[Rfam]
Source information
The record is a 95-nucleotide RNA, which matches "Rhodo-rpoB RNA" in Rfam. The sequence is in the family's curated seed alignment.
RNA sequence: AGGUCGGGCGGAUAUCUUUGGGACGAUAUUCUGGAAUAGGCCGAACCAAAACCCUUUCUCAGAUGUUCACUCUGCUGGUCCCCAACAGCAGUGUG
Numbered sequence: 001a002g003g004u005c006g007g008g009c010g011g012a013u014a015u016c017u018u019u020g021g022g023a024c025g026a027u028a029u030u031c032u033g034g035a036a037u038a039g040g041c042c043g044a045a046c047c048a049a050a051a052c053c054c055u056u057u058c059u060c061a062g063a064u065g066u067u068c069a070c071u072c073u074g075c076u077g078g079u080c081c082c083c084a085a086c087a088g089c090a091g092u093g094u095g
Stems, first nucleotide, its partner, number of pairs: 002042004010031007068095003072091006